Rfam assigns this 108-nucleotide RNA sequence from Halonatronomonas betaini to the family "TPP riboswitch aptamer (THI element)". A search with the family's covariance model found it, with a score of 82 bits. The base pairs follow the family's consensus structure, which is taken from published work.
RNA sequence: AUAAAGCACAGGGGGAGCUAUUAUAUAGCUGAGAAUGAGGUAUUGACCUCUAGACCCUUGAAACCUGAUCUGGAUAAUACCAGCGGAGGGAUGUGUAGAUUAAGUGCU
Numbered sequence: 001a002u003a004a005a006g007c008a009c010a011g012g013g014g015g016a017g018c019u020a021u022u023a024u025a026u027a028g029c030u031g032a033g034a035a036u037g038a039g040g041u042a043u044u045g046a047c048c049u050c051u052a053g054a055c056c057c058u059u060g061a062a063a064c065c066u067g068a069u070c071u072g073g074a075u076a077a078u079a080c081c082a083g084c085g086g087a088g089g090g091a092u093g094u095g096u097a098g099a100u101u102a103a104g105u106g107c108u
Stems, first nucleotide, its partner, number of pairs: 006096005011058004017029005037050004064089003070083004

Rfam's curators write: Vitamin B(1) in its active form thiamin pyrophosphate (TPP) is an essential coenzyme that is synthesised by coupling of pyrimidine and thiazole moieties in bacteria.